[Rfam]
RNA sequence: GUGAACUCUUUGCUUGAUAGGUGAAAUGAGGGAGUAACGCCCCAAAGCGCCUACUCUGAUACUCCGACAUGCAUCAUUCUAUAUAUUGAGAAUGGGGUGUGAAUCUCGGUGAAGUCGGCUGAAAGAUACCGUCUGUUGAUAAAAAAAAUAGUGAACGGCAACGAAAUCUCUCUAGCGGUAGAGGGUGUAUCUGAUAGGCCGGGAGUCGUUAAA
Numbered sequence: 001g002u003g004a005a006c007u008c009u010u011u012g013c014u015u016g017a018u019a020g021g022u023g024a025a026a027u028g029a030g031g032g033a034g035u036a037a038c039g040c041c042c043c044a045a046a047g048c049g050c051c052u053a054c055u056c057u058g059a060u061a062c063u064c065c066g067a068c069a070u071g072c073a074u075c076a077u078u079c080u081a082u083a084u085a086u087u088g089a090g091a092a093u094g095g096g097g098u099g100u101g102a103a104u105c106u107c108g109g110u111g112a113a114g115u116c117g118g119c120u121g122a123a124a125g126a127u128a129c130c131g132u133c134u135g136u137u138g139a140u141a142a143a144a145a146a147a148a149u150a151g152u153g154a155a156c157g158g159c160a161a162c163g164a165a166a167u168c169u170c171u172c173u174a175g176c177g178g179u180a181g182a183g184g185g186u187g188u189a190u191c192u193g194a195u196a197g198g199c200c201g202g203g204a205g206u207c208g209u210u211a212a213a
Stems, first nucleotide, its partner, number of pairs: 018053006031043002034040001054205004064109004068101005074095007116201005124192006130163003168185007